This 410-nucleotide RNA from Paramesorhizobium deserti belongs to the Rfam family "Alphaproteobacteria transfer-messenger RNA". Taxonomically the source falls in Paramesorhizobium (Bacteria, Pseudomonadati, Pseudomonadota, Phyllobacteriaceae). About the family: Bacterial tmRNA, also known as 10Sa RNA or SsrA, is named for its dual tRNA and mRNA-like properties. Its role is to liberate the mRNA from a stalled ribosome. To accomplish this part of the tmRNA is used as a reading frame that ends in a translation stop signal. It is annotated as a non-coding RNA gene. The family is grouped with related families in Rfam's "tRNA clan".
RNA sequence: CCCCUUCCAAUUCCAGAAAGGCGCACUUAUAUAGGGAUUGCCGGCUUCGGCCGGCUAUGGUGAUAAACGGACGAUGUAAUAAGCCCAUUGGACCCGGGGGCGGUACCCGGCGCCUCCACCAGAAUGCAGCCAAGGCAAGUCCAGGAAAAGUGGACAGCGGUUUUCCGUCAGGACUUGCAAAAUGAGAUGGCUGCCUUCUGGCGGGGGCGAAAUAGGAUCGACAAGGGUGUAAAGAUCGCUCUUUUGCCCGGCAUUGUACCACCGUUAUCGGGCUAACUCAGUAGUUGCAAACGACAACUAUGCGGAGGCACGUCUCGCCGCUUAAUGCGGUGCGAUAGCUUCAAAUCAAGCCUUAGGCCGUCGCAGGUCUAAGCGGGGUUCGGAGGCACCUGGCAACAGAAGCCUCCACU
Numbered sequence: 001c002c003c004c005u006u007c008c009a010a011u012u013c014c015a016g017a018a019a020g021g022c023g024c025a026c027u028u029a030u031a032u033a034g035g036g037a038u039u040g041c042c043g044g045c046u047u048c049g050g051c052c053g054g055c056u057a058u059g060g061u062g063a064u065a066a067a068c069g070g071a072c073g074a075u076g077u078a079a080u081a082a083g084c085c086c087a088u089u090g091g092a093c094c095c096g097g098g099g100g101c102g103g104u105a106c107c108c109g110g111c112g113c114c115u116c117c118a119c120c121a122g123a124a125u126g127c128a129g130c131c132a133a134g135g136c137a138a139g140u141c142c143a144g145g146a147a148a149a150g151u152g153g154a155c156a157g158c159g160g161u162u163u164u165c166c167g168u169c170a171g172g173a174c175u176u177g178c179a180a181a182a183u184g185a186g187a188u189g190g191c192u193g194c195c196u197u198c199u200g201g202c203g204g205g206g207g208c209g210a211a212a213u214a215g216g217a218u219c220g221a222c223a224a225g226g227g228u229g230u231a232a233a234g235a236u237c238g239c240u241c242u243u244u245u246g247c248c249c250g251g252c253a254u255u256g257u258a259c260c261a262c263c264g265u266u267a268u269c270g271g272g273c274u275a276a277c278u279c280a281g282u283a284g285u286u287g288c289a290a291a292c293g294a295c296a297a298c299u300a301u302g303c304g305g306a307g308g309c310a311c312g313u314c315u316c317g318c319c320g321c322u323u324a325a326u327g328c329g330g331u332g333c334g335a336u337a338g339c340u341u342c343a344a345a346u347c348a349a350g351c352c353u354u355a356g357g358c359c360g361u362c363g364c365a366g367g368u369c370u371a372a373g374c375g376g377g378g379u380u381c382g383g384a385g386g387c388a389c390c391u392g393g394c395a396a397c398a399g400a401a402g403c404c405u406c407c408a409c410u
Stems, first nucleotide, its partner, number of pairs: 040055005059248005069241002072238004084227003088224003094110005111209007249264003254275001256273001259271002376391004382407006